Shown here is a 181-nucleotide sequence from Nostoc sp. PCC 7120 = FACHB-418, a member of the family "c-di-AMP riboswitch aptamer (ydaO/yuaA leader)".
[Rfam]
RNA sequence: AACACCUAUGUGCAGGGUUGAAGCUAGGAACGGAGGAACCAAGUUUGGGGCGUAUCUGCCAAAAAAGCUGAAGCUAAAGUAUGAAAAAGAGAUUUCAAAUUUUAGACUUAGAGCAUUUAGAGAAGGACAUCUCUCAGUCCUAGCCCGUCAGCUAACUUCGUAGGCAUUGAGAGGAGAUUGA
Numbered sequence: 001a002a003c004a005c006c007u008a009u010g011u012g013c014a015g016g017g018u019u020g021a022a023g024c025u026a027g028g029a030a031c032g033g034a035g036g037a038a039c040c041a042a043g044u045u046u047g048g049g050g051c052g053u054a055u056c057u058g059c060c061a062a063a064a065a066a067g068c069u070g071a072a073g074c075u076a077a078a079g080u081a082u083g084a085a086a087a088a089g090a091g092a093u094u095u096c097a098a099a100u101u102u103u104a105g106a107c108u109u110a111g112a113g114c115a116u117u118u119a120g121a122g123a124a125g126g127a128c129a130u131c132u133c134u135c136a137g138u139c140c141u142a143g144c145c146c147g148u149c150a151g152c153u154a155a156c157u158u159c160g161u162a163g164g165c166a167u168u169g170a171g172a173g174g175a176g177a178u179u180g181a
Stems, first nucleotide, its partner, number of pairs: 005028004030161006040047002048146003056122002125140004
Taxonomically the source falls in Nostoc (Bacteria, Bacillati, Cyanobacteriota, Nostocales). It scores 60 bits against the family's covariance model.